[Rfam]
RNA: Photosynthesis regulatory RNA1
Organism: Microcystis aeruginosa
RNA sequence: ACCGAUAAUCUUUGGUUUUGGUAUCUUCCUUUGGUUUUGCAUUGAGUUCUCCUACAACAGCAGCCUCGGACAUGAACCGAGGUUUUU
Numbered sequence: 001a002c003c004g005a006u007a008a009u010c011u012u013u014g015g016u017u018u019u020g021g022u023a024u025c026u027u028c029c030u031u032u033g034g035u036u037u038u039g040c041a042u043u044g045a046g047u048u049c050u051c052c053u054a055c056a057a058c059a060g061c062a063g064c065c066u067c068g069g070a071c072a073u074g075a076a077c078c079g080a081g082g083u084u085u086u087u
Stems, first nucleotide, its partner, number of pairs: 059083001064082006